The record is a 141-nucleotide RNA sequence from Trichechus manatus, which matches "Small nucleolar RNA SNORA67" in Rfam. The family's RNA type in Rfam is H/ACA-box small nucleolar RNA. The family's consensus secondary structure was predicted with RNAalifold. The source organism's lineage runs through Eukaryota, Metazoa, Eumetazoa, Theria and Trichechus manatus. Rfam describes the family as follows. U67 belongs to the H/ACA class of snoRNAs which are thought to guide the sites of modification of uridines to pseudouridines. Its family is annotated with nucleolus and RNA processing in the Gene Ontology.
RNA sequence: AUCCAAGGUGAUUCCCUCUCCAAGGGGCCAGCUAGUGCCUCUCUCAGGAAAGUAGCAACUUGGAAUAAAAUCUGGCAUGCCCAAGGUCUUCCGGGGAGAAGGGGAUGUCUUUCCUUUUGCCUUCUUUGGCUGCCUACAUAG
Numbered sequence: 001a002u003c004c005a006a007g008g009u010g011a012u013u014c015c016c017u018c019u020c021c022a023a024g025g026g027g028c029c030a031g032c033u034a035g036u037g038c039c040u041c042u043c044u045c046a047g048g049a050a051a052g053u054a055g056c057a058a059c060u061u062g063g064a065a066u067a068a069a070a071u072c073u074g075g076c077a078u079g080c081c082c083a084a085g086g087u088c089u090u091c092c093g094g095g096g097a098g099a100a101g102g103g104g105a106u107g108u109c110u111u112u113c114c115u116u117u118u119g120c121c122u123u124c125u126u127u128g129g130c131u132g133c134c135u136a137c138a139u140a141g
Stems, first nucleotide, its partner, number of pairs: 002064006009057002019049003023042006075131001078129001083125001085123001094113003